[Rfam]
RNA sequence: UGGAGGAGCAGGGCUUAGCCACUUGUGAGCAGGGUUUCUACCGUGAUGUUCACAGUGGCUAAGUUCCGCCCCCCUG
Numbered sequence: 001u002g003g004a005g006g007a008g009c010a011g012g013g014c015u016u017a018g019c020c021a022c023u024u025g026u027g028a029g030c031a032g033g034g035u036u037u038c039u040a041c042c043g044u045g046a047u048g049u050u051c052a053c054a055g056u057g058g059c060u061a062a063g064u065u066c067c068g069c070c071c072c073c074c075u076g
Stems, first nucleotide, its partner, number of pairs: 011066010025053007
Rfam assigns this 76-nucleotide RNA sequence from Dipodomys ordii to the family "mir-27 microRNA precursor family". For this family Rfam cites "The developmental miRNA profiles of zebrafish as determined by small RNA cloning" (Chen et al., Genes Dev, 2005). Rfam links the family to the GO terms miRNA-mediated post-transcriptional gene silencing and RISC complex.